[Rfam]
RNA sequence: UUAAAAUAAAUAUAUCAAUCUCGUAUAAAGCCGGGAAUAAGGUCCGGCAGUUUCUACCCGGGAACCGUAAAUUUCCGGACUACGAGGAAUUCAGCGUCAGCC
Dot-bracket structure: ..................(((((((....((((((.......)))))).........(((((((.......)))))))..)))))))...............
Description
Shown here is a 102-nucleotide RNA sequence from Paenibacillus faecis, a member of the family "Purine riboswitch aptamer". Rfam describes the family as follows. Riboswitches are metabolite binding domains within certain messenger RNAs that serve as precision sensors for their corresponding targets. Gene Ontology term of the family: purine nucleobase biosynthetic process.